Shown here is a 77-nucleotide RNA from Mucilaginibacter ginsenosidivorans, a member of the family "Fluoride riboswitch aptamer (crcB RNA motif)". A search with the family's covariance model found it, with a score of 41 bits.

[Rfam]
RNA sequence: CACUAUCAAGGUGAUGGUGUUCCACCUAUUUGAACCGUUCGGCCCGUAAAGGCAGUUCUGAUGACGCCUGCGAAAUA
Numbered sequence: 001c002a003c004u005a006u007c008a009a010g011g012u013g014a015u016g017g018u019g020u021u022c023c024a025c026c027u028a029u030u031u032g033a034a035c036c037g038u039u040c041g042g043c044c045c046g047u048a049a050a051g052g053c054a055g056u057u058c059u060g061a062u063g064a065c066g067c068c069u070g071c072g073a074a075a076u077a
Base pairs, nucleotide, nucleotide: 010026011025012024013023016068017067018066019065020064021063037058040055